[Rfam]
RNA sequence: GCGGAGGGCCGGAUGGCCGCGGCGGCCUUCGGGGCGUCGAGGAAAGUCCGGACUCCAUGAAGCAACGGUGCCGGGUAACGCCCGGGCGGGGCAACCCGACGGAAAGCGCCACAGAAAUGAAACCGCCAUGCUCCGGCAUGGUAAGGAUGAAACGGUGGGGUAAGAGCCCACCGCGCCGCUGGUAACAGGGGCGGCAUGGCAAGCCCUACCGGGAGCAAUGCCAAAUAGGACCCCCGCGCGGGCCGGUCCCCGCAAGGGGAAACCGCCGCUAGGCUUGCUUCAGCCAAGAGGGGUCGGGUUGGCAGCACGAGGCGCAGCGCGAGCUGCGUCCCAGAUGAAUGGUCAUCGACGGGGGCAACCCCUGAACAAAAUCCGGCUUACAGGCCCUCCGCGCUA
Numbered sequence: 001g002c003g004g005a006g007g008g009c010c011g012g013a014u015g016g017c018c019g020c021g022g023c024g025g026c027c028u029u030c031g032g033g034g035c036g037u038c039g040a041g042g043a044a045a046g047u048c049c050g051g052a053c054u055c056c057a058u059g060a061a062g063c064a065a066c067g068g069u070g071c072c073g074g075g076u077a078a079c080g081c082c083c084g085g086g087c088g089g090g091g092c093a094a095c096c097c098g099a100c101g102g103a104a105a106g107c108g109c110c111a112c113a114g115a116a117a118u119g120a121a122a123c124c125g126c127c128a129u130g131c132u133c134c135g136g137c138a139u140g141g142u143a144a145g146g147a148u149g150a151a152a153c154g155g156u157g158g159g160g161u162a163a164g165a166g167c168c169c170a171c172c173g174c175g176c177c178g179c180u181g182g183u184a185a186c187a188g189g190g191g192c193g194g195c196a197u198g199g200c201a202a203g204c205c206c207u208a209c210c211g212g213g214a215g216c217a218a219u220g221c222c223a224a225a226u227a228g229g230a231c232c233c234c235c236g237c238g239c240g241g242g243c244c245g246g247u248c249c250c251c252g253c254a255a256g257g258g259g260a261a262a263c264c265g266c267c268g269c270u271a272g273g274c275u276u277g278c279u280u281c282a283g284c285c286a287a288g289a290g291g292g293g294u295c296g297g298g299u300u301g302g303c304a305g306c307a308c309g310a311g312g313c314g315c316a317g318c319g320c321g322a323g324c325u326g327c328g329u330c331c332c333a334g335a336u337g338a339a340u341g342g343u344c345a346u347c348g349a350c351g352g353g354g355g356c357a358a359c360c361c362c363u364g365a366a367c368a369a370a371a372u373c374c375g376g377c378u379u380a381c382a383g384g385c386c387c388u389c390c391g392c393g394c395u396a
Stems, first nucleotide, its partner, number of pairs: 001392010011381001012347007020039005026033002044379003048376005053215004064280001066211005071085005086100001087098004101206002106204002108200003123146002125142007154172006173195001174193004179188003219304004229295006274288004311330008
RNA: Bacterial RNase P class A
Organism: Antarcticimicrobium sediminis